[Rfam]
RNA: TPP riboswitch aptamer (THI element)
RNA sequence: AUAGUUGCACCGGGGUGCCUGUAUUCUCAACGAUCUGUAGGCCUCUUGGCCCGGAUUGUUGUGAGUUGGGCUGAGAAAGUCCCUUUGAACCUGAACAGGAUAAUGCCUGCGAAGGGAGUGUGCACUUCUAUUUU
Numbered sequence: 001a002u003a004g005u006u007g008c009a010c011c012g013g014g015g016u017g018c019c020u021g022u023a024u025u026c027u028c029a030a031c032g033a034u035c036u037g038u039a040g041g042c043c044u045c046u047u048g049g050c051c052c053g054g055a056u057u058g059u060u061g062u063g064a065g066u067u068g069g070g071c072u073g074a075g076a077a078a079g080u081c082c083c084u085u086u087g088a089a090c091c092u093g094a095a096c097a098g099g100a101u102a103a104u105g106c107c108u109g110c111g112a113a114g115g116g117a118g119u120g121u122g123c124a125c126u127u128c129u130a131u132u133u134u
Base pairs, nucleotide, nucleotide: 006122007121008120009119010118012083013082014081016078017071018070019069020068021067090115091114092113096109097108098107099106